RNA sequence: CUGCAGUGAUGACUUUCUUAGGACACCUUUGAAUUAACCAUGAAAAUAAAAUGGAUUUCUGAGCAGC
Numbered sequence: 001c002u003g004c005a006g007u008g009a010u011g012a013c014u015u016u017c018u019u020a021g022g023a024c025a026c027c028u029u030u031g032a033a034u035u036a037a038c039c040a041u042g043a044a045a046a047u048a049a050a051a052u053g054g055a056u057u058u059c060u061g062a063g064c065a066g067c
Stems, first nucleotide, its partner, number of pairs: 001066004
The family of this 67-nucleotide sequence from Platysternon megacephalum is "Small nucleolar RNA SNORD58". Lineage of the source: Eukaryota > Chordata > Vertebrata > Sarcopterygii > Platysternon. Pairs were carried over by alignment from the consensus structure, which was predicted with PFOLD. The family's RNA type in Rfam is C/D-box small nucleolar RNA. On this family, see Galardi et al., Mol Cell Biol 2002: "Purified box C/D snoRNPs are able to reproduce site-specific 2'-O-methylation of target RNA in vitro". Its Rfam clan is "SNORD58 clan".